[Rfam]
RNA: FMN riboswitch aptamer (RFN element)
Organism: Bacillus aquiflavi
RNA sequence: AUCUAUCUUCGGGGCUGGGUGAAAUUCCCGACCGGCGGUGAAAAGUUAAUUCUUUAAGCCCGCGAGCUCUUUGUAUAAGAGCAGGAUUUGGUGGAAAUCCAAAGCCGACAGUACAGUCUGGAUGGGAGAAGAUGGAG
Numbered sequence: 001a002u003c004u005a006u007c008u009u010c011g012g013g014g015c016u017g018g019g020u021g022a023a024a025u026u027c028c029c030g031a032c033c034g035g036c037g038g039u040g041a042a043a044a045g046u047u048a049a050u051u052c053u054u055u056a057a058g059c060c061c062g063c064g065a066g067c068u069c070u071u072u073g074u075a076u077a078a079g080a081g082c083a084g085g086a087u088u089u090g091g092u093g094g095a096a097a098u099c100c101a102a103a104g105c106c107g108a109c110a111g112u113a114c115a116g117u118c119u120g121g122a123u124g125g126g127a128g129a130a131g132a133u134g135g136a137g
Stems, first nucleotide, its partner, number of pairs: 003135008017029003031117002033107002035063004058105002066082003087103005109120003